This 175-nucleotide RNA from Planomicrobium sp. YIM 101495 belongs to the Rfam family "Lysine riboswitch aptamer".
Riboswitches are metabolite binding domains within certain messenger RNAs that serve as precision sensors for their corresponding targets. Allosteric rearrangement of mRNA structure is mediated by ligand binding, and this results in modulation of gene expression.
The family's consensus secondary structure is taken from published work.
The source organism's lineage runs through Bacteria, Bacilli, Caryophanales, Caryophanaceae and Planomicrobium.
RNA sequence: AGUGGUGAUAGAGGAGCGAACGUCAUCAGUAUUUGUCCGGAGAUGUGCAACAUCUGCGAAGGGCAAGGAAAGGGGCGGUCGCCGAAGUGUAUGUGACAUUGCAAUCACAUGUGCUGGUUCUGCAUUUAAGAAAUGCAGGGCUGUCAGAGGAAAUCUCUGGAGGGCUAUCUCACAU
Numbered sequence: 001a002g003u004g005g006u007g008a009u010a011g012a013g014g015a016g017c018g019a020a021c022g023u024c025a026u027c028a029g030u031a032u033u034u035g036u037c038c039g040g041a042g043a044u045g046u047g048c049a050a051c052a053u054c055u056g057c058g059a060a061g062g063g064c065a066a067g068g069a070a071a072g073g074g075g076c077g078g079u080c081g082c083c084g085a086a087g088u089g090u091a092u093g094u095g096a097c098a099u100u101g102c103a104a105u106c107a108c109a110u111g112u113g114c115u116g117g118u119u120c121u122g123c124a125u126u127u128a129a130g131a132a133a134u135g136c137a138g139g140g141c142u143g144u145c146a147g148a149g150g151a152a153a154u155c156u157c158u159g160g161a162g163g164g165c166u167a168u169c170u171c172a173c174a175u
Stems, first nucleotide, its partner, number of pairs: 007169005016082004021077004032067007086115011116142011144160007
Dot-bracket structure: ......(((((....((((.((((.......(((((((......................)))))))......)))).))))...(((((((((((........)))))))))))(((((((((((.....))))))))))).(((((((...)))))))....)))))......